[Rfam]
RNA: Mammalian CPEB3 ribozyme
Organism: Alligator mississippiensis
RNA sequence: GUUGCAAAUUUGGGGCCAUAGCAGUAGUGCUCACAGCAUGGCCAUGUCAAAUUGCAGCAAAUAUGCAGAUUUUGCU
Numbered sequence: 001g002u003u004g005c006a007a008a009u010u011u012g013g014g015g016c017c018a019u020a021g022c023a024g025u026a027g028u029g030c031u032c033a034c035a036g037c038a039u040g041g042c043c044a045u046g047u048c049a050a051a052u053u054g055c056a057g058c059a060a061a062u063a064u065g066c067a068g069a070u071u072u073u074g075c076u
Base pairs, nucleotide, nucleotide: 014043015042016041017040020076021075022074023073024072026070027039028038029037048065049064051062052061053060